[Rfam]
Nucleotides: 384
Base pairs, nucleotide, nucleotide: 040055041054042053043052044051059259060258061257062256063255069252070251073248074247075246084237085236086235088233089232090231094110095109096108097107098106111218112217113216114215115214116213117212261274263272350365351364352363353362357380
Number, partner (000 for none) and nucleotide at each position: 001000a002000g003000g004000c005000u006000g007000g008000a009000u010000a011000u012000u013000g014000c015000g016000c017000c018000u019000c020000c021000g022000a023000c024000a025000c026000u027000c028000u029000a030000u031000a032000u033000a034000g035000a036000g037000g038000a039000g040055g041054u042053c043052a044051g045000g046000u047000u048000c049000g050000c051044c052043u053042g054041a055040c056000u057000a058000u059259g060258a061257u062256c063255g064000u065000a066000g067000a068000g069252g070251c071000a072000g073248a074247g075246u076000g077000u078000a079000a080000u081000a082000g083000g084237c085236g086235u087000u088233u089232a090231g091000g092000a093000c094110g095109c096108g097107g098106g099000u100000u101000c102000g103000a104000u105000u106098c107097c108096c109095g110094c111218c112217g113216c114215c115214u116213c117212c118000a119000c120000c121000a122000c123000g124000a125000a126000c127000g128000c129000a130000u131000c132000g133000g134000c135000c136000g137000u138000c139000c140000g141000g142000g143000u144000a145000u146000c147000u148000c149000g150000g151000a152000a153000c154000g155000g156000c157000u158000u159000u160000g161000g162000g163000c164000a165000a166000c167000c168000g169000g170000u171000u172000u173000a174000u175000c176000g177000u178000u179000g180000a181000g182000g183000c184000u185000g186000u187000g188000u189000u190000g191000c192000u193000g194000u195000u196000c197000c198000g199000g200000u201000g202000u203000g204000u205000u206000u207000u208000u209000g210000a211000u212117g213116g214115g215114g216113g217112c218111g219000a220000u221000c222000u223000g224000g225000g226000u227000u228000c229000g230000a231090c232089u233088g234000g235086g236085c237084g238000c239000a240000a241000u242000a243000a244000a245000g246075g247074c248073u249000a250000g251070g252069c253000u254000g255063c256062g257061a258060u259059u260000a261274g262000g263272c264000u265000g266000a267000g268000c269000u270000a271000c272263g273000g274261c275000c276000u277000c278000a279000a280000c281000a282000g283000u284000g285000c286000a287000a288000a289000c290000u291000c292000a293000u294000a295000a296000a297000u298000g299000c300000c301000a302000a303000c304000g305000a306000c307000a308000a309000c310000g311000u312000u313000g314000a315000c316000a317000u318000g319000g320000g321000u322000g323000c324000g325000g326000u327000g328000c329000g330000c331000c332000u333000c334000g335000c336000g337000g338000c339000g340000u341000a342000a343000c344000c345000a346000u347000c348000c349000g350365g351364g352363g353362c354000u355000c356000g357380g358000g359000a360000a361000a362353g363352c364351c365350u366000a367000g368000c369000a370000a371000c372000a373000g374000a375000a376000a377000c378000g379000g380357c381000a382000c383000c384000u